[Rfam]
RNA sequence: CUGGCCGAACCGCCGAAUCCACGGCCGCAAACCAGCGUUCCGAGGAGCCGGGAACCCACUUUGGAUGGUUUGGGGGGAUCGCCCUCCGAUCCCGCCUGGGGUGAAUCCGCGCGCGAACGCGGAAGGGCUGCUCCGGCCCCAACCCGUCAGCUAACUCGGUAGGCGGACGAGGAGAGGAGAU
Numbered sequence: 001c002u003g004g005c006c007g008a009a010c011c012g013c014c015g016a017a018u019c020c021a022c023g024g025c026c027g028c029a030a031a032c033c034a035g036c037g038u039u040c041c042g043a044g045g046a047g048c049c050g051g052g053a054a055c056c057c058a059c060u061u062u063g064g065a066u067g068g069u070u071u072g073g074g075g076g077g078a079u080c081g082c083c084c085u086c087c088g089a090u091c092c093c094g095c096c097u098g099g100g101g102u103g104a105a106u107c108c109g110c111g112c113g114c115g116a117a118c119g120c121g122g123a124a125g126g127g128c129u130g131c132u133c134c135g136g137c138c139c140c141a142a143c144c145c146g147u148c149a150g151c152u153a154a155c156u157c158g159g160u161a162g163g164c165g166g167a168c169g170a171g172g173a174g175a176g177g178a179g180a181u
Stems, first nucleotide, its partner, number of pairs: 011165004018046003047160006057098002099145003107122004125139004
Dot-bracket structure: ..........((((...(((.......................)))((((((....((......................................))(((.....((((........))))..((((.......))))...))).........)))))).))))................
The record is a 181-nucleotide sequence from Actinomadura rudentiformis, which matches "c-di-AMP riboswitch aptamer (ydaO/yuaA leader)" in Rfam. Its family is annotated with cyclic-di-AMP binding and regulation of gene expression in the Gene Ontology. The source organism's lineage runs through Bacteria, Bacillati, Actinomycetes, Streptosporangiales and Actinomadura.